[Rfam]
RNA sequence: GUGUGUUUAUGACAGGCUGACUCUAAGCUCUUAUGACGGAUCAGCCUUGAUGCUCCAUAC
Numbered sequence: 001g002u003g004u005g006u007u008u009a010u011g012a013c014a015g016g017c018u019g020a021c022u023c024u025a026a027g028c029u030c031u032u033a034u035g036a037c038g039g040a041u042c043a044g045c046c047u048u049g050a051u052g053c054u055c056c057a058u059a060c
Stems, first nucleotide, its partner, number of pairs: 001060005014047007022039002029036002
This 60-nucleotide RNA sequence from Astyanax mexicanus belongs to the Rfam family "Selenocysteine insertion sequence 1". The match comes from Rfam's covariance-model search (36 bits). Its family is annotated with selenocysteine incorporation in the Gene Ontology. About the family: The incorporation of selenocysteine into a protein sequence is directed by an in-frame UGA codon (usually a stop codon) within the coding region of the mRNA. Selenoprotein mRNAs contain a conserved secondary structure in the 3' UTR that is required for the distinction of UGA stop from UGA selenocysteine. The base pairs follow the family's consensus structure, which is taken from published work.